[Rfam]
RNA: mir-568 microRNA precursor family
Organism: Trichechus manatus
RNA sequence: AUACACACUCUAUUAUGUAUAAAUGUAUACACACUUCCUAUAUAUACCCACAUAUAUAGUGUAUAUAUUAUACAUGGACACGUGUGUAUAU
Numbered sequence: 001a002u003a004c005a006c007a008c009u010c011u012a013u014u015a016u017g018u019a020u021a022a023a024u025g026u027a028u029a030c031a032c033a034c035u036u037c038c039u040a041u042a043u044a045u046a047c048c049c050a051c052a053u054a055u056a057u058a059g060u061g062u063a064u065a066u067a068u069u070a071u072a073c074a075u076g077g078a079c080a081c082g083u084g085u086g087u088a089u090a091u
Base pairs, nucleotide, nucleotide: 003085004084005083006082009080011078013076015075016074017073018072019071020070021069022068024067025066026065027064028063029062030061031060032059039056040055041054042053043052045050